[Rfam]
Rfam assigns this 132-nucleotide sequence from Tetranychus urticae to the family "Small nucleolar RNA U6-53/MBII-28". A reference for the family is Huttenhofer et al. (2001), "RNomics: an experimental approach that identifies 201 candidates for novel, small, non-messenger RNAs in mouse", EMBO J. Gene Ontology terms of the family: nucleolus and RNA processing. NCBI's taxonomy places the organism under Eukaryota, Metazoa, Bilateria, Prostigmata, Tetranychus.

Nucleotides: 132
Stems, first nucleotide, its partner, number of pairs: 001131004043080003
Number, partner (000 for none) and nucleotide at each position: 001131a002130c003129c004128c005000g006000a007000u008000g009000a010000u011000g012000a013000g014000u015000c016000g017000u018000g019000c020000c021000a022000u023000g024000c025000u026000a027000a028000u029000a030000c031000a032000g033000a034000g035000u036000u037000c038000c039000c040000a041000u042000c043080u044079c045078a046000a047000u048000g049000u050000u051000u052000g053000u054000c055000a056000a057000c058000c059000u060000u061000a062000a063000g064000g065000u066000u067000g068000a069000u070000g071000a072000u073000g074000u075000g076000a077000g078045u079044g080043a081000a082000a083000a084000c085000g086000g087000g088000g089000g090000c091000a092000a093000u094000g095000a096000g097000u098000u099000g100000a101000a102000a103000a104000a105000u106000u107000u108000c109000u110000u111000c112000u113000c114000a115000u116000c117000c118000u119000u120000a121000a122000c123000u124000c125000u126000g127000a128004g129003g130002g131001u132000u